[Rfam]
RNA sequence: GCGUGUGGAUGUGACGGCCGCGGGCCUGCCGAGAGGCGGGUCUGAGGAAAGUCCGAACACGACAGGACACGGUGGUGGGUAACACCCACCGGGCGGGCUGGCGACGGCCCGUUUAGGGAUAGCGCAACAGAAAGGAAACCGCCUGGGUCAGUGAUGAGUGACGAGUGAACAGUAACGAGUAUCGGUUUUGACUCAUCACUGAGAACUCGUCACUCAUCACUGAUCCAGGUAAGGGUGAAAGGGUGCGGUAAGAGCGCACCGCUCGCUUGGCGACAGGCGAGGCAUGGCAAGCCCCACCGCGUGCAAACUCAAGCAGCCCCGGAAACGGCUUGCCGUUUCGCCCACGGUCCGUGGUGGGGCGGGUAGAGCGCUUGAGCCCGUCGGCAACGGCGGGCCUAGAGAAAUGGCCGUCCCCCGCAAGGGGAACAAAAUUCGGCUUACGGUCCACACAUUAAA
Numbered sequence: 001g002c003g004u005g006u007g008g009a010u011g012u013g014a015c016g017g018c019c020g021c022g023g024g025c026c027u028g029c030c031g032a033g034a035g036g037c038g039g040g041u042c043u044g045a046g047g048a049a050a051g052u053c054c055g056a057a058c059a060c061g062a063c064a065g066g067a068c069a070c071g072g073u074g075g076u077g078g079g080u081a082a083c084a085c086c087c088a089c090c091g092g093g094c095g096g097g098c099u100g101g102c103g104a105c106g107g108c109c110c111g112u113u114u115a116g117g118g119a120u121a122g123c124g125c126a127a128c129a130g131a132a133a134g135g136a137a138a139c140c141g142c143c144u145g146g147g148u149c150a151g152u153g154a155u156g157a158g159u160g161a162c163g164a165g166u167g168a169a170c171a172g173u174a175a176c177g178a179g180u181a182u183c184g185g186u187u188u189u190g191a192c193u194c195a196u197c198a199c200u201g202a203g204a205a206c207u208c209g210u211c212a213c214u215c216a217u218c219a220c221u222g223a224u225c226c227a228g229g230u231a232a233g234g235g236u237g238a239a240a241g242g243g244u245g246c247g248g249u250a251a252g253a254g255c256g257c258a259c260c261g262c263u264c265g266c267u268u269g270g271c272g273a274c275a276g277g278c279g280a281g282g283c284a285u286g287g288c289a290a291g292c293c294c295c296a297c298c299g300c301g302u303g304c305a306a307a308c309u310c311a312a313g314c315a316g317c318c319c320c321g322g323a324a325a326c327g328g329c330u331u332g333c334c335g336u337u338u339c340g341c342c343c344a345c346g347g348u349c350c351g352u353g354g355u356g357g358g359g360c361g362g363g364u365a366g367a368g369c370g371c372u373u374g375a376g377c378c379c380g381u382c383g384g385c386a387a388c389g390g391c392g393g394g395c396c397u398a399g400a401g402a403a404a405u406g407g408c409c410g411u412c413c414c415c416c417g418c419a420a421g422g423g424g425a426a427c428a429a430a431a432u433u434c435g436g437c438u439u440a441c442g443g444u445c446c447a448c449a450c451a452u453u454a455a456a
Base pairs, nucleotide, nucleotide: 001452003450004449005448006447007446008445009444010443011441013412014411015410016409017408018407019406021044022043023042024041025040026039027038028037029036049439050438051437053436054435055434056433057432058303059302060301061300065350066349067348068347070299071298072297073296074295075089076088077087078086079085090116091114092113093112094111095110096109097108098107099106100105117294118293122292123291124288125287139234140233141230142229143228144227145226146225147224148223149222150221151220152219153218154217155216156215157214158213159212160211161210162209163208164207165206166205242260243259244258245257246256247255261283262281263280264279265278266277267276268275269274308368309367310366316360317359318358319357320356321355343353344352345351376395377394378393379392380391381390382389383388

The family of this 456-nucleotide RNA from Algisphaera agarilytica is "Bacterial RNase P class A". NCBI's taxonomy places the organism under Bacteria, Pseudomonadati, Planctomycetota, Phycisphaerae, Algisphaera. Rfam classes the family as a ribozyme.